Rfam assigns this 79-nucleotide sequence from Cyprinodon variegatus to the family "mir-27 microRNA precursor family". A search with the family's covariance model found it, with a score of 73 bits.
RNA sequence: UUGAGGUGAAGGACUUAGCUCGCUUUGUGAACAGUUUAGUGAAAUCCUAUGUUCACAGUGGCUAAGUUCCGCUCCUCAC
Number, nucleotide and partner (000 for none) at each position: 001u000002u000003g000004a000005g000006g000007u000008g000009a000010a000011g069012g068013a067014c066015u065016u064017a063018g062019c061020u060021c000022g000023c000024u000025u000026u000027g056028u055029g054030a053031a052032c051033a050034g000035u000036u000037u000038a000039g000040u000041g000042a000043a000044a000045u000046c000047c000048u000049a000050u033051g032052u031053u030054c029055a028056c027057a000058g000059u000060g020061g019062c018063u017064a016065a015066g014067u013068u012069c011070c000071g000072c000073u000074c000075c000076u000077c000078a000079c000
NCBI's taxonomy places the organism under Eukaryota, Gnathostomata, Euteleostomi, Clupeocephala, Cyprinodon.